[Rfam]
RNA sequence: GCCGGGAGCAAUCCUGUAACCGCAAGGGGCAGUGGUGUGGUAGGGUCCCUUGACCGCUCUGAUCCGAUCCUUCGCGCUAGUGGCUGCGCCUGAGCAGAGUGGGCGGCGCCUGUCGGUGCUUGCCUGACGGUGGGCACCUACGGGCAUGAUGUGGGGGGCACCGCAUGAGGCUGGAAACAGAGCAGUGAAUACCCCCCUCCGCCUUGCGGCUGCCAGAUCACGUGGCCUAGCGUUGGAUUGGGCUCAAUCAGGGCGAUCAUUGGGACACGACCUCACCG
Numbered sequence: 001g002c003c004g005g006g007a008g009c010a011a012u013c014c015u016g017u018a019a020c021c022g023c024a025a026g027g028g029g030c031a032g033u034g035g036u037g038u039g040g041u042a043g044g045g046u047c048c049c050u051u052g053a054c055c056g057c058u059c060u061g062a063u064c065c066g067a068u069c070c071u072u073c074g075c076g077c078u079a080g081u082g083g084c085u086g087c088g089c090c091u092g093a094g095c096a097g098a099g100u101g102g103g104c105g106g107c108g109c110c111u112g113u114c115g116g117u118g119c120u121u122g123c124c125u126g127a128c129g130g131u132g133g134g135c136a137c138c139u140a141c142g143g144g145c146a147u148g149a150u151g152u153g154g155g156g157g158g159c160a161c162c163g164c165a166u167g168a169g170g171c172u173g174g175a176a177a178c179a180g181a182g183c184a185g186u187g188a189a190u191a192c193c194c195c196c197c198u199c200c201g202c203c204u205u206g207c208g209g210c211u212g213c214c215a216g217a218u219c220a221c222g223u224g225g226c227c228u229a230g231c232g233u234u235g236g237a238u239u240g241g242g243c244u245c246a247a248u249c250a251g252g253g254c255g256a257u258c259a260u261u262g263g264g265a266c267a268c269g270a271c272c273u274c275a276c277c278g
Stems, first nucleotide, its partner, number of pairs: 001030003004015004020027002033278005039272003043268001045266005051259003055255009064241007074233003082227007090216002094213004099207003102203005108145006115138009153196005164187003171180003